Shown here is a 187-nucleotide RNA sequence from Prevotella sp. P3-122, a member of the family "Bacteroidales-1 6S-Bacteroidales RNA suggested". NCBI's taxonomy places the organism under Bacteria, Pseudomonadati, Bacteroidia, Bacteroidales, Prevotella. It scores 109 bits against the family's covariance model. Bacteroidales-1 was first reported in a comparative genomics-based approach of genome and metagenome sequences from Weinberg et al. 2010 In a high-resolution transcriptome map study of Bacteroides thetaiotaomicron, Ryan et al. 2020 report this sRNA as 6S RNA homologue of Bacteroides, in the study they obtain evidence of small product RNAs (pRNAs) related to 6S function. It is annotated as a small RNA.
[Rfam]
RNA sequence: AGUUGUGUUGAUUAGAUAGGGAUACUCAUCAAAUAAUAUCGAAAACCGAUGUUGCCACUCCUGCUAAUGGCGGGCCACACUAAAGGGCGAACAACCCGAGCUGUAAAGCCAGUGGAUUACAAAGGCGGAGAGCACUCAAAUCUUACAGAUUAGGAGUUUUCAUCACAUCAUUGGCACGACUCCCACU
Numbered sequence: 001a002g003u004u005g006u007g008u009u010g011a012u013u014a015g016a017u018a019g020g021g022a023u024a025c026u027c028a029u030c031a032a033a034u035a036a037u038a039u040c041g042a043a044a045a046c047c048g049a050u051g052u053u054g055c056c057a058c059u060c061c062u063g064c065u066a067a068u069g070g071c072g073g074g075c076c077a078c079a080c081u082a083a084a085g086g087g088c089g090a091a092c093a094a095c096c097c098g099a100g101c102u103g104u105a106a107a108g109c110c111a112g113u114g115g116a117u118u119a120c121a122a123a124g125g126c127g128g129a130g131a132g133c134a135c136u137c138a139a140a141u142c143u144u145a146c147a148g149a150u151u152a153g154g155a156g157u158u159u160u161c162a163u164c165a166c167a168u169c170a171u172u173g174g175c176a177c178g179a180c181u182c183c184c185a186c187u
Stems, first nucleotide, its partner, number of pairs: 054133002058130002061128005068121002075115004100109003